[Rfam]
RNA sequence: GCUAAGAGAGCAGAAACAGACAGGGAUGAGGUCGAGCAUGAGAUGGAUCAACCAACACCAAUGCUGUUGUUGCUCUUCCCAUGCACUGCCUCUUCCCUGGCUCUCUCUUUUCUUUCAUUU
Dot-bracket structure: .................((.((((((..((((.(.(((((.(...((..........................))...)))))).).))))..)))))).))..................
Numbered sequence: 001g002c003u004a005a006g007a008g009a010g011c012a013g014a015a016a017c018a019g020a021c022a023g024g025g026a027u028g029a030g031g032u033c034g035a036g037c038a039u040g041a042g043a044u045g046g047a048u049c050a051a052c053c054a055a056c057a058c059c060a061a062u063g064c065u066g067u068u069g070u071u072g073c074u075c076u077u078c079c080c081a082u083g084c085a086c087u088g089c090c091u092c093u094u095c096c097c098u099g100g101c102u103c104u105c106u107c108u109u110u111u112c113u114u115u116c117a118u119u120u
Stems, first nucleotide, its partner, number of pairs: 018102002021099006029091004034086001036084005042079001046075002